RNA: BsrG
RNA sequence: GCAAUAGCAAAGGUUUCUCAAGGGUGGUCGGCUCACUCCACUGUCAAAGCAUGUCUUUGCAGGAAUGGAGGUGAGGCCGUAUGACUGUAUUUGAAUCGCUUAUGUUUACCGUAGCGUUUACGGGGCUGGUUAUUUCAAUUCUGUCAUUCCAGAAAAAAGAUUAAAACCGCCCUUGAGGUUUUAGCGAGCCCGGGCGGUUUUAGCCUGUUGUGACGCCGAUUCCCGUAAUGGAAACCAGCUAUUGUAAUCGCCUUUUCGAUGCUGGACACAUCGAAAAGG
Numbered sequence: 001g002c003a004a005u006a007g008c009a010a011a012g013g014u015u016u017c018u019c020a021a022g023g024g025u026g027g028u029c030g031g032c033u034c035a036c037u038c039c040a041c042u043g044u045c046a047a048a049g050c051a052u053g054u055c056u057u058u059g060c061a062g063g064a065a066u067g068g069a070g071g072u073g074a075g076g077c078c079g080u081a082u083g084a085c086u087g088u089a090u091u092u093g094a095a096u097c098g099c100u101u102a103u104g105u106u107u108a109c110c111g112u113a114g115c116g117u118u119u120a121c122g123g124g125g126c127u128g129g130u131u132a133u134u135u136c137a138a139u140u141c142u143g144u145c146a147u148u149c150c151a152g153a154a155a156a157a158a159g160a161u162u163a164a165a166a167c168c169g170c171c172c173u174u175g176a177g178g179u180u181u182u183a184g185c186g187a188g189c190c191c192g193g194g195c196g197g198u199u200u201u202a203g204c205c206u207g208u209u210g211u212g213a214c215g216c217c218g219a220u221u222c223c224c225g226u227a228a229u230g231g232a233a234a235c236c237a238g239c240u241a242u243u244g245u246a247a248u249c250g251c252c253u254u255u256u257c258g259a260u261g262c263u264g265g266a267c268a269c270a271u272c273g274a275a276a277a278g279g
Stems, first nucleotide, its partner, number of pairs: 001245005007239002015219002017177008026167001028165001033074003036070005083145003087141001089139001096111001098109001122135002188206001220233004251279010